[Rfam]
RNA: U5 spliceosomal RNA
RNA sequence: UUGGAGUAGGCCCGCUCAGACCGAACUCAUUUCCUGCCUUUUACCGGAUGUGACCGUGAGUUGGCCUAAAAUACUCCAUUCCCCAAUCUUUGGAAACACCUCUCUGGGUAUC
Number, nucleotide and partner (000 for none) at each position: 001u000002u000003g077004g076005a075006g074007u000008a067009g066010g065011c064012c063013c000014g061015c060016u059017c058018a057019g000020a000021c000022c000023g000024a000025a000026c000027u053028c052029a051030u050031u000032u048033c047034c046035u000036g000037c000038c000039u000040u000041u000042u000043a000044c000045c000046g034047g033048a032049u000050g030051u029052g028053a027054c000055c000056g000057u018058g017059a016060g015061u014062u000063g012064g011065c010066c009067u008068a000069a000070a000071a000072u000073a000074c006075u005076c004077c003078a000079u000080u000081c000082c000083c000084c000085a000086a000087u000088c000089u000090u000091u000092g000093g000094a000095a000096a111097c000098a109099c108100c107101u106102c000103u000104c000105u000106g101107g100108g099109u098110a000111u096112c000